[Rfam]
The record is a 133-nucleotide sequence from [Enterobacter] lignolyticus, which matches "RtT RNA" in Rfam.
Taxonomically the source falls in [Enterobacter] lignolyticus (Bacteria, Pseudomonadati, Enterobacterales, Enterobacteriaceae).
This family represents a bacterial cis-regulatory element known as RtT RNA. The exact function of RtT is unknown although it is thought that it may be involved in changing the cellular response in relation to amino acid starvation.
A search with the family's covariance model found it, with a score of 95 bits.
Rfam 15.1 lists 651 matches to the family in 204 species.
The literature on the family includes a 1991 paper in Nucleic Acids Res by Bosl and Kersten, "A novel RNA product of the tyrT operon of Escherichia coli".
Pairs were carried over by alignment from the consensus structure, which is taken from published work.

RNA sequence: GCAUCCGGAGUUUUAUGAGGAUGAGAGCCUCCGGGGGCAGGAGGUUCGACUCGAGCGAAGCGAGAGAACGUUGCGCUAGCAACGGCCCGCAGGGCGAGCCACGCAGUGGUGAGUUAUCCUCUAUCACCGACCA
Number, nucleotide and partner (000 for none) at each position: 001g000002c000003a000004u000005c000006c000007g000008g000009a000010g000011u000012u000013u000014u000015a124016u123017g121018a120019g119020g118021a000022u116023g000024a000025g000026a000027g000028c000029c000030u000031c000032c096033g095034g000035g000036g000037g000038c000039a000040g000041g000042a000043g000044g000045u091046u000047c089048g088049a000050c000051u000052c062053g061054a000055g000056c000057g000058a000059a000060g000061c053062g052063a000064g000065a000066g000067a000068a000069c084070g083071u082072u081073g080074c079075g000076c000077u000078a000079g074080c073081a072082a071083c070084g069085g000086c000087c000088c048089g047090c000091a045092g000093g000094g000095c033096g032097a000098g000099c000100c000101a000102c000103g000104c000105a000106g000107u000108g000109g000110u000111g000112a000113g000114u000115u000116a022117u000118c020119c019120u018121c017122u000123a016124u015125c000126a000127c000128c000129g000130a000131c000132c000133a000